RNA sequence: UAGCUUUGUUCUAAGUCAAACACCUCUAACUGAACAAGUUUUUAGAAAAACAUAUUAACAUCUAAAAGUUCAAAUAAGUGAAGACAUUUCAUAUAGAAAUAUAAUGAAACUAAUUGAUGUCAUAGAUGUUGAUGCAUUUUUCUUUAAACCUGGUUAAAUUUAGAGAAGUUUGACUUAGGACAAAGCUAA
Numbered sequence: 001u002a003g004c005u006u007u008g009u010u011c012u013a014a015g016u017c018a019a020a021c022a023c024c025u026c027u028a029a030c031u032g033a034a035c036a037a038g039u040u041u042u043u044a045g046a047a048a049a050a051c052a053u054a055u056u057a058a059c060a061u062c063u064a065a066a067a068g069u070u071c072a073a074a075u076a077a078g079u080g081a082a083g084a085c086a087u088u089u090c091a092u093a094u095a096g097a098a099a100u101a102u103a104a105u106g107a108a109a110c111u112a113a114u115u116g117a118u119g120u121c122a123u124a125g126a127u128g129u130u131g132a133u134g135c136a137u138u139u140u141u142c143u144u145u146a147a148a149c150c151u152g153g154u155u156a157a158a159u160u161u162a163g164a165g166a167a168g169u170u171u172g173a174c175u176u177a178g179g180a181c182a183a184a185g186c187u188a189a
Stems, first nucleotide, its partner, number of pairs: 005184005011178011024165003031157001033155002044143007053134003057130008070117004075113001
The record is a 189-nucleotide RNA from Miscanthus lutarioriparius, which matches "MIR1435 microRNA precursor family" in Rfam. The organism belongs to Miscanthus, within Eukaryota. Rfam 15.1 lists 1,765 matches to the family in 31 species. Pairs were carried over by alignment from the consensus structure, which was predicted with RNAalifold. Gene Ontology terms of the family: RISC complex and miRNA-mediated post-transcriptional gene silencing.